RNA sequence: CCCCCUGGACGACCAGGCGGCGAGAUUAUUCCCGGCGGGACGACCCGC
Numbered sequence: 001c002c003c004c005c006u007g008g009a010c011g012a013c014c015a016g017g018c019g020g021c022g023a024g025a026u027u028a029u030u031c032c033c034g035g036c037g038g039g040a041c042g043a044c045c046c047g048c
Base pairs, nucleotide, nucleotide: 001020002019004017005016006015007014008013035048036047037046038045039044
RNA: Guanidine-II riboswitch aptamer (mini-ykkC)